[Rfam]
RNA sequence: AUGCCUUAAACUAAUGAGUAAGGAAAAUAACGAGCCUGGGUGAUUACAGGCUCCCAGACAAGACGUUCUGGAAGAAUUUGUUUCUGGGCUUAGGUCGCCCCCAGGUGACCCACCUACUUUGUGGGAUGCCAGGGUUGAGUGAUCUGCCCU
Numbered sequence: 001a002u003g004c005c006u007u008a009a010a011c012u013a014a015u016g017a018g019u020a021a022g023g024a025a026a027a028u029a030a031c032g033a034g035c036c037u038g039g040g041u042g043a044u045u046a047c048a049g050g051c052u053c054c055c056a057g058a059c060a061a062g063a064c065g066u067u068c069u070g071g072a073a074g075a076a077u078u079u080g081u082u083u084c085u086g087g088g089c090u091u092a093g094g095u096c097g098c099c100c101c102c103a104g105g106u107g108a109c110c111c112a113c114c115u116a117c118u119u120u121g122u123g124g125g126a127u128g129c130c131a132g133g134g135u136u137g138a139g140u141g142a143u144c145u146g147c148c149c150u
Stems, first nucleotide, its partner, number of pairs: 004023005032053007054071005086149004092145007101134002104130004109125005
RNA: U12 minor spliceosomal RNA
Organism: Candidula unifasciata